Background:
SAH (S-adenosyl-L-homocysteine) riboswitch aptamer: a 93-nucleotide RNA sequence from Tibeticola sediminis. NCBI's taxonomy places the organism under Bacteria, Pseudomonadati, Betaproteobacteria, Comamonadaceae, Tibeticola.

RNA sequence: GCCUCCAAGGAGCGUUGCAGCGGGCCGGUGGCCCGUCAGGCUUGGACCGUAUCUUCCCCGCGGCGGCGCCGCGCACAACGACGCUCACCUGUA
Number, nucleotide and partner (000 for none) at each position: 001g000002c000003c000004u046005c045006c044007a043008a042009g000010g000011a000012g000013c000014g000015u000016u000017g000018c000019a000020g000021c035022g034023g033024g032025c031026c030027g000028g000029u000030g026031g025032c024033c023034c022035g021036u000037c000038a000039g000040g000041c000042u008043u007044g006045g005046a004047c000048c000049g000050u000051a000052u000053c000054u000055u000056c000057c000058c000059c000060g000061c000062g000063g000064c000065g000066g000067c000068g000069c000070c000071g000072c000073g000074c000075a000076c000077a000078a000079c000080g000081a000082c000083g000084c000085u000086c000087a000088c000089c000090u000091g000092u000093a000